Shown here is a 153-nucleotide RNA sequence from Rhizobium gallicum, a member of the family "FMN riboswitch aptamer (RFN element)". Taxonomically the source falls in Rhizobium gallicum bv. gallicum (Bacteria, Alphaproteobacteria, Hyphomicrobiales, Rhizobiaceae).

RNA sequence: UUCAGUUCUCAGGGCGGGUGAAAGUCCCCACCGGCGGUAAGGGCCUCGGCCCGAGCCCGCGAGCGCCUUUAGCGCGCCCAUGGGGGGGAGGGGUCAGCAGAUCAGGUGCGAUGCCGGAGCCGACGGUCAUAGUCCGGAUGAAAGAGAAUGAUC
Number, nucleotide and partner (000 for none) at each position: 001u000002u000003c000004a000005g149006u148007u147008c146009u145010c144011a000012g000013g000014g000015c000016g028017g027018g026019u000020g000021a000022a000023a000024g000025u000026c018027c017028c016029c000030a133031c132032c122033g121034g060035c059036g058037g057038u000039a000040a000041g000042g000043g000044c000045c000046u000047c000048g000049g000050c000051c000052c000053g000054a000055g120056c119057c037058c036059g035060c034061g000062a000063g098064c097065g000066c000067c000068u000069u000070u000071a000072g000073c000074g000075c000076g000077c000078c000079c000080a000081u000082g000083g000084g000085g000086g000087g000088g000089a000090g000091g000092g000093g000094u000095c000096a000097g064098c063099a000100g000101a000102u118103c117104a000105g115106g114107u000108g000109c000110g000111a000112u000113g000114c106115c105116g000117g103118a102119g056120c055121c033122g032123a000124c136125g135126g134127u000128c000129a000130u000131a000132g031133u030134c126135c125136g124137g000138a000139u000140g000141a000142a000143a000144g010145a009146g008147a007148a006149u005150g000151a000152u000153c000
Rfam links the family to the GO term FMN binding.